[Rfam]
RNA sequence: AUUAUUUCAAAAAUAAGCUAUCGUAUAACGUUGAUAUAAUGGAUCGACAGUCUCUACCGGAUCACCUAUGAUCUGACUACGAUAAAGGCAUUUCCUAUG
Numbered sequence: 001a002u003u004a005u006u007u008c009a010a011a012a013a014u015a016a017g018c019u020a021u022c023g024u025a026u027a028a029c030g031u032u033g034a035u036a037u038a039a040u041g042g043a044u045c046g047a048c049a050g051u052c053u054c055u056a057c058c059g060g061a062u063c064a065c066c067u068a069u070g071a072u073c074u075g076a077c078u079a080c081g082a083u084a085a086a087g088g089c090a091u092u093u094c095c096u097a098u099g
Stems, first nucleotide, its partner, number of pairs: 019084007030048006058075007
Dot-bracket structure: ..................(((((((....((((((.......)))))).........(((((((....)))))))..)))))))...............